[Rfam]
RNA: Small nucleolar RNA SNORD89
RNA sequence: UCAUGAGGAAUGAUGACCUGAAAGGCCGAAUUACAGUGUCCCAAGCUGCUGUUUGUCAGCAGCAUUGAGGCCACGGUGACAAAAACUCCUGAAGUGAUAUUUUAUUCUGACCUCUGA
Numbered sequence: 001u002c003a004u005g006a007g008g009a010a011u012g013a014u015g016a017c018c019u020g021a022a023a024g025g026c027c028g029a030a031u032u033a034c035a036g037u038g039u040c041c042c043a044a045g046c047u048g049c050u051g052u053u054u055g056u057c058a059g060c061a062g063c064a065u066u067g068a069g070g071c072c073a074c075g076g077u078g079a080c081a082a083a084a085a086c087u088c089c090u091g092a093a094g095u096g097a098u099a100u101u102u103u104a105u106u107c108u109g110a111c112c113u114c115u116g117a
Stems, first nucleotide, its partner, number of pairs: 001117003005114004015107002025034001035103002038100001042096001046091001048089001051074002054070001056068003075088002